[Rfam]
RNA sequence: GUCAAACAGGACUGUAAGUCGCUCUGGAUAAGAGAGUCUGCUAAAUGACUACAA
Numbered sequence: 001g002u003c004a005a006a007c008a009g010g011a012c013u014g015u016a017a018g019u020c021g022c023u024c025u026g027g028a029u030a031a032g033a034g035a036g037u038c039u040g041c042u043a044a045a046u047g048a049c050u051a052c053a054a
Stems, first nucleotide, its partner, number of pairs: 013043001014041003020036001022034004
RNA: UnaL2 LINE 3' element